[Rfam]
RNA: tRNA
Organism: Parabacteroides sp. AM08-6
RNA sequence: GCGGAAGUAGCUCAGUCGAUAGAGCAUUAGCCUUCCAAGCUGAGGGUCGCGGGUUUGAGCCCCGUCUUCCGCU
Numbered sequence: 001g002c003g004g005a006a007g008u009a010g011c012u013c014a015g016u017c018g019a020u021a022g023a024g025c026a027u028u029a030g031c032c033u034u035c036c037a038a039g040c041u042g043a044g045g046g047u048c049g050c051g052g053g054u055u056u057g058a059g060c061c062c063c064g065u066c067u068u069c070c071g072c073u
Stems, first nucleotide, its partner, number of pairs: 001072007010025004027043005049065005